[Rfam]
RNA sequence: CGAAAUCUUGUGAAAUCUUCGGGGCCUUUUCUAAGACCCAGUGAACAAUUUUUGGGACCCUUGCGAAAGCAAGGGUU
Numbered sequence: 001c002g003a004a005a006u007c008u009u010g011u012g013a014a015a016u017c018u019u020c021g022g023g024g025c026c027u028u029u030u031c032u033a034a035g036a037c038c039c040a041g042u043g044a045a046c047a048a049u050u051u052u053u054g055g056g057a058c059c060c061u062u063g064c065g066a067a068a069g070c071a072a073g074g075g076u077u
Base pairs, nucleotide, nucleotide: 022039023038024037026035027034028033057076058075059074060073061072062071063070064069
Rfam assigns this 77-nucleotide RNA sequence from Nippostrongylus brasiliensis to the family "SmY spliceosomal RNA". The match comes from Rfam's covariance-model search (60 bits). For this family Rfam cites "Direct analysis of nematode cis- and trans-spliceosomes: a functional role for U5 snRNA in spliced leader addition trans-splicing and the identification of novel Sm snRNPs" (Maroney et al., RNA, 1996). It is annotated as a spliceosomal small nuclear RNA.